The record is a 76-nucleotide RNA sequence from Scleropages formosus, which matches "U1A polyadenylation inhibition element (PIE)" in Rfam. This family represents the U1A polyadenylation inhibition element (PIE). PIE is a regulatory RNA which is responsible for the regulation of the length of the polyA tail of the U1A pre-mRNA. The PIE is located in the U1A mRNA 3' UTR. PIE adopts a U-shaped structure, with binding sites for a single U1A protein at each bend and when complexed with the two proteins it blocks activity of poly(A) polymerase (PAP), and inhibits its activity. The source organism's lineage runs through Eukaryota, Craniata, Vertebrata, Teleostei and Scleropages. The literature on the family includes a 2004 paper in Biochemistry by Clerte and Hall, "Global and Local Dynamics of the U1A Polyadenylation Inhibition Element (PIE) RNA and PIE RNA-U1A Complexes". Pairs were carried over by alignment from the consensus structure, which is taken from published work.

[Rfam]
RNA sequence: UAUAUAAGCAUUGCACCCAGGGUUUGGGUCACCAAACAUUGUACCUGGAGCUUUUCUGUACUAAUUAAAGACUGUU
Numbered sequence: 001u002a003u004a005u006a007a008g009c010a011u012u013g014c015a016c017c018c019a020g021g022g023u024u025u026g027g028g029u030c031a032c033c034a035a036a037c038a039u040u041g042u043a044c045c046u047g048g049a050g051c052u053u054u055u056c057u058g059u060a061c062u063a064a065u066u067a068a069a070g071a072c073u074g075u076u
Stems, first nucleotide, its partner, number of pairs: 006053004017048004022037005